[Rfam]
RNA sequence: CGAGGCCUGGACCUGGCACACAGUGUAGGAGACUGUGUAACCAUGGCAACAGCUACAUUGUCUGCUGGGUUCAGGUUGCC
Numbered sequence: 001c002g003a004g005g006c007c008u009g010g011a012c013c014u015g016g017c018a019c020a021c022a023g024u025g026u027a028g029g030a031g032a033c034u035g036u037g038u039a040a041c042c043a044u045g046g047c048a049a050c051a052g053c054u055a056c057a058u059u060g061u062c063u064g065c066u067g068g069g070u071u072c073a074g075g076u077u078g079c080c
Stems, first nucleotide, its partner, number of pairs: 013068006020061009033052004
RNA: mir-221 microRNA precursor family